The record is a 107-nucleotide RNA sequence from Alteromonas confluentis, which matches "Alpha operon ribosome binding site" in Rfam. Gene Ontology term of the family: ribosome binding. NCBI's taxonomy places the organism under Bacteria, Pseudomonadati, Alteromonadales, Alteromonadaceae, Alteromonas. The base pairs follow the family's consensus structure, which is taken from published work. The bacterial alpha operon ribosome binding site is surrounded by this complex pseudoknotted structure. Translation of the mRNA produces 4 ribosomal protein products, one of which (S4) acts as a translational repressor by binding to the nested pseudoknot region. The mechanism of repression is thought to involve a conformational switch in the pseudoknot region and ribosome entrapment.
[Rfam]
RNA sequence: CAAUUUUGUCGUCGGGUAAGUAUCUUAUCGGGCUUUUUAGGUCGUCGACAUUAAAAUAUAGAGGAGUGCUGUUAAUGGCCCGUAUCGCUGGCAUUAACAUUCCUGAA
Numbered sequence: 001c002a003a004u005u006u007u008g009u010c011g012u013c014g015g016g017u018a019a020g021u022a023u024c025u026u027a028u029c030g031g032g033c034u035u036u037u038u039a040g041g042u043c044g045u046c047g048a049c050a051u052u053a054a055a056a057u058a059u060a061g062a063g064g065a066g067u068g069c070u071g072u073u074a075a076u077g078g079c080c081c082g083u084a085u086c087g088c089u090g091g092c093a094u095u096a097a098c099a100u101u102c103c104u105g106a107a
Base pairs, nucleotide, nucleotide: 004053007050008049009048010047011046013044024091025090029082030081031080032079037106038105039104